Shown here is a 148-nucleotide RNA sequence from Paucidesulfovibrio gracilis, a member of the family "FMN riboswitch aptamer (RFN element)". The match comes from Rfam's covariance-model search (120 bits). About the family: The RFN element is a highly conserved domain that is found frequently in the 5'-untranslated regions of prokaryotic mRNAs that encode for flavin mononucleotide (FMN) biosynthesis and transport proteins. This element is a metabolite-dependent riboswitch that directly binds FMN in the absence of proteins. In Bacillus subtilis, the riboswitch most likely controls gene expression by causing premature transcription termination within the 5' untranslated region of the ribDEAHT operon and precluding access to the ribosome-binding site of ypaA mRNA.The FMN riboswitch structure, reported in present an FMN-bound six-stem junction, adopts a butterfly-like scaffold, stapled together by opposingly directed but nearly identically folded peripheral domains.
[Rfam]
RNA sequence: ACUUAUUCUCAGGGCGGGGUGGAAUUCCCCACCGGCGGUGAUUCGGCUUUGCCGAAAAGUCCGCGAGCGCUCUUGGUUGUUCAAGAGGUCAGCAGAUCCGGUGUGAUUCCGGAACCGACGGUAACAGUCCGGAUGGAAGAGGAUAAGG
Numbered sequence: 001a002c003u004u005a006u007u008c009u010c011a012g013g014g015c016g017g018g019g020u021g022g023a024a025u026u027c028c029c030c031a032c033c034g035g036c037g038g039u040g041a042u043u044c045g046g047c048u049u050u051g052c053c054g055a056a057a058a059g060u061c062c063g064c065g066a067g068c069g070c071u072c073u074u075g076g077u078u079g080u081u082c083a084a085g086a087g088g089u090c091a092g093c094a095g096a097u098c099c100g101g102u103g104u105g106a107u108u109c110c111g112g113a114a115c116c117g118a119c120g121g122u123a124a125c126a127g128u129c130c131g132g133a134u135g136g137a138a139g140a141g142g143a144u145a146a147g148g
Stems, first nucleotide, its partner, number of pairs: 003146008017029003031128002033117002035064004059115002067093002097113005119131003
The source organism's lineage runs through Bacteria, Thermodesulfobacteriota, Desulfovibrionaceae, Paucidesulfovibrio and Paucidesulfovibrio gracilis.